[Rfam]
RNA sequence: AAAGGCAGUUGCAACAAUUUUGGGGUUUCUUAGUGGCAUUUGCCUGAUUUUUUCGUUGCAAUGCCCUUGGAAAUCCCAAAUAUGUAUGCGACUAUU
Numbered sequence: 001a002a003a004g005g006c007a008g009u010u011g012c013a014a015c016a017a018u019u020u021u022g023g024g025g026u027u028u029c030u031u032a033g034u035g036g037c038a039u040u041u042g043c044c045u046g047a048u049u050u051u052u053u054c055g056u057u058g059c060a061a062u063g064c065c066c067u068u069g070g071a072a073a074u075c076c077c078a079a080a081u082a083u084g085u086a087u088g089c090g091a092c093u094a095u096u
Base pairs, nucleotide, nucleotide: 008092009091010090011089012088013087014085015084016083021078022077023076024075025074026073027072028071029070032067033066035065036064037063038062039061041060042059043058
RNA: mir-2788 microRNA precursor family